Record summary: The record is a 54-nucleotide sequence from Lentivirus capartenc, which matches "ribosomal frameshift element" in Rfam. Pairs were carried over by alignment from the consensus structure, which is taken from published work. The literature on the family includes a 2005 paper in Mol Cell by Bekaert and Rousset, "An extended signal involved in eukaryotic -1 frameshifting operates through modification of the E site tRNA". Rfam's curators put it in the seed alignment. Taxonomically the source falls in Caprine arthritis encephalitis virus (Viruses, Pararnavirae, Ortervirales, Orthoretrovirinae).
[Rfam]
Nucleotides: 054
Base pairs, nucleotide, nucleotide: 002032003031004030005029006028007027013054014053015052016051017050018049019048035044036043
Number, partner (000 for none) and nucleotide at each position: 001000c002032g003031g004030g005029g006028g007027a008000c009000a010000c011000g012000u013054g014053u015052g016051g017050u018049g019048c020000c021000g022000u023000c024000c025000g026000c027007u028006c029005c030004c031003c032002c033000c034000a035044g036043g037000g038000a039000a040000u041000a042000a043036c044035u045000g046000a047000u048019g049018c050017a051016c052015c053014a054013c